RNA sequence: UACGUGCUCCGGGGUCGGUGAAAGUCCGAACCGGCGGUGACAGUCCGCGAACCCGCAAGGGUUGAACUGGUGGAAUUCCGGUACCGACGGUAAUGAGGUCGAAAGGCCUCUCAGUCCGGAUGAGAGGAUGCACGGG
Numbered sequence: 001u002a003c004g005u006g007c008u009c010c011g012g013g014g015u016c017g018g019u020g021a022a023a024g025u026c027c028g029a030a031c032c033g034g035c036g037g038u039g040a041c042a043g044u045c046c047g048c049g050a051a052c053c054c055g056c057a058a059g060g061g062u063u064g065a066a067c068u069g070g071u072g073g074a075a076u077u078c079c080g081g082u083a084c085c086g087a088c089g090g091u092a093a094u095g096a097g098g099u100c101g102a103a104a105g106g107c108c109u110c111u112c113a114g115u116c117c118g119g120a121u122g123a124g125a126g127g128a129u130g131c132a133c134g135g136g
Base pairs, nucleotide, nucleotide: 003134004133005132006131007130008128009127010126016028017027018026032086033085034048035047036046037045043084044083051062052061053060066082067081068080069079070078088118089117090116
Rfam assigns this 136-nucleotide RNA sequence from Leifsonia sp. AK011 to the family "FMN riboswitch aptamer (RFN element)". Pairs were carried over by alignment from the consensus structure, which is taken from published work. Rfam links the family to the GO term FMN binding.